Rfam assigns this 64-nucleotide RNA to the family "pemK RNA". Rfam classes the family as a cis-regulatory element. Rfam's curators put it in the seed alignment. The base pairs follow the family's consensus structure, which is taken from published work.
[Rfam]
RNA sequence: AUAAUGAUACUUCUGUAAAACGCAGCUCGGCCACAGUGAAGGCGGAGAGAUGAAAUUUCUAUGG
Numbered sequence: 001a002u003a004a005u006g007a008u009a010c011u012u013c014u015g016u017a018a019a020a021c022g023c024a025g026c027u028c029g030g031c032c033a034c035a036g037u038g039a040a041g042g043c044g045g046a047g048a049g050a051u052g053a054a055a056u057u058u059c060u061a062u063g064g
Stems, first nucleotide, its partner, number of pairs: 012061001013025004026047003030043003048060003